[Rfam]
RNA sequence: GGGUGCCUGAGGCUUUCUGGUUUCAGGCAUUAUGCAGGUUCUGGAAAGAUGAAGGCCCCGAGUUAAUUACCUUAACCCGAGGCCGACACAUGAACCCGAACAGUUCAUAUGUUAGCCUCUUACUCGCCUUUCGGCAAGGAGAAUGGCUAUGAAG
Numbered sequence: 001g002g003g004u005g006c007c008u009g010a011g012g013c014u015u016u017c018u019g020g021u022u023u024c025a026g027g028c029a030u031u032a033u034g035c036a037g038g039u040u041c042u043g044g045a046a047a048g049a050u051g052a053a054g055g056c057c058c059c060g061a062g063u064u065a066a067u068u069a070c071c072u073u074a075a076c077c078c079g080a081g082g083c084c085g086a087c088a089c090a091u092g093a094a095c096c097c098g099a100a101c102a103g104u105u106c107a108u109a110u111g112u113u114a115g116c117c118u119c120u121u122a123c124u125c126g127c128c129u130u131u132c133g134g135c136a137a138g139g140a141g142a143a144u145g146g147c148u149a150u151g152a153a154g
Stems, first nucleotide, its partner, number of pairs: 001059003005056004011050001013048008024038001027035002060078001062076002079119005086112003090108005123146002128141001

The record is a 154-nucleotide sequence from Cronobacter sakazakii, which matches "sok antitoxin (CssrC)" in Rfam. Rfam classes the family as an antitoxin RNA. It scores 105 bits against the family's covariance model. Gene Ontology term of the family: mRNA binding. The source organism's lineage runs through Bacteria, Pseudomonadati, Pseudomonadota, Enterobacterales and Cronobacter sakazakii. Rfam describes the family as follows. Also identified in Shigella as CssrC. For this family Rfam cites "An antisense RNA controls synthesis of an SOS-induced toxin evolved from an antitoxin" (Kawano et al., Mol Microbiol, 2007).